Notes:
The record is an 86-nucleotide sequence from Oceanobacillus limi, which matches "c-di-GMP-I riboswitch aptamer" in Rfam. The family's consensus secondary structure is taken from published work. A search with the family's covariance model found it, with a score of 75 bits.

[Rfam]
RNA sequence: CUAUAAUGAUGGCAAACUACUUGAAAAGGUAGGACGCAAAGCUAUGGGUCUAAGGUCUAGUUGACUAUGAUCGCCUGGUUGCCAAG
Numbered sequence: 001c002u003a004u005a006a007u008g009a010u011g012g013c014a015a016a017c018u019a020c021u022u023g024a025a026a027a028g029g030u031a032g033g034a035c036g037c038a039a040a041g042c043u044a045u046g047g048g049u050c051u052a053a054g055g056u057c058u059a060g061u062u063g064a065c066u067a068u069g070a071u072c073g074c075c076u077g078g079u080u081g082c083c084a085a086g
Stems, first nucleotide, its partner, number of pairs: 012037002017032006040080004046075002048071003055065003